Rfam assigns this 222-nucleotide RNA from Miscanthus lutarioriparius to the family "MIR6217 microRNA precursor family". A search with the family's covariance model found it, with a score of 111 bits.
RNA sequence: UAGCCGCACAAUAAGUUAUUUUGUGGCCACUUUGAGUUAUGAUAAUUACUAAUUUAUGAGAUUAUGAUAACUCUCUCAUAAGUGAUUUACUAUAGCAUUACGGUAAGUAUCAUAUUGAAUUAUAAUAACCCAUGUAUCGUAAAUGUGUAUUGUCAUUAUCGUAAAUUGGUACAAACAUUAUCAUAAAUCAAGGUGGUUAUAAAAUAAGUUAUUCUAUGGCCA
Numbered sequence: 001u002a003g004c005c006g007c008a009c010a011a012u013a014a015g016u017u018a019u020u021u022u023g024u025g026g027c028c029a030c031u032u033u034g035a036g037u038u039a040u041g042a043u044a045a046u047u048a049c050u051a052a053u054u055u056a057u058g059a060g061a062u063u064a065u066g067a068u069a070a071c072u073c074u075c076u077c078a079u080a081a082g083u084g085a086u087u088u089a090c091u092a093u094a095g096c097a098u099u100a101c102g103g104u105a106a107g108u109a110u111c112a113u114a115u116u117g118a119a120u121u122a123u124a125a126u127a128a129c130c131c132a133u134g135u136a137u138c139g140u141a142a143a144u145g146u147g148u149a150u151u152g153u154c155a156u157u158a159u160c161g162u163a164a165a166u167u168g169g170u171a172c173a174a175a176c177a178u179u180a181u182c183a184u185a186a187a188u189c190a191a192g193g194u195g196g197u198u199a200u201a202a203a204a205u206a207a208g209u210u211a212u213u214c215u216a217u218g219g220c221c222a
Base pairs, nucleotide, nucleotide: 001222003220004219005218006217008215010213011212012211013210014209016207017206018205019204020203021202022201023200024199025198026197027196028195029194030193031192032191033190037186038185039184040183041182042181043180044179045178046177047171048170049169050168051167052166053165054164055163056162057161060160061159062158064156065155066154069150074143076141082137083136084135087132088127089126091124092123093122094121095120098117103111
Lineage of the source: Eukaryota > Tracheophyta > Spermatophyta > Poales > Miscanthus.